Background: Shown here is a 118-nucleotide RNA from Solanum lycopersicum, a member of the family "Small nucleolar RNA snoR104".
RNA sequence: GGGGAACAUCUACGAGGUCAGAUGUUGCCCGAUACAAACUUCCCACACUAAAACUCUAUCAUAAGAUGCUUGAGGUACUUGAGUGAGUUCUUCAAGCUGUUGAUCAGGAGGCACAUAA
Numbered sequence: 001g002g003g004g005a006a007c008a009u010c011u012a013c014g015a016g017g018u019c020a021g022a023u024g025u026u027g028c029c030c031g032a033u034a035c036a037a038a039c040u041u042c043c044c045a046c047a048c049u050a051a052a053a054c055u056c057u058a059u060c061a062u063a064a065g066a067u068g069c070u071u072g073a074g075g076u077a078c079u080u081g082a083g084u085g086a087g088u089u090c091u092u093c094a095a096g097c098u099g100u101u102g103a104u105c106a107g108g109a110g111g112c113a114c115a116u117a118a
Stems, first nucleotide, its partner, number of pairs: 001030003005026007055111003068097008077088003
The family's RNA type in Rfam is H/ACA-box small nucleolar RNA.
The organism belongs to Solanum subgen. Lycopersicon, within Eukaryota.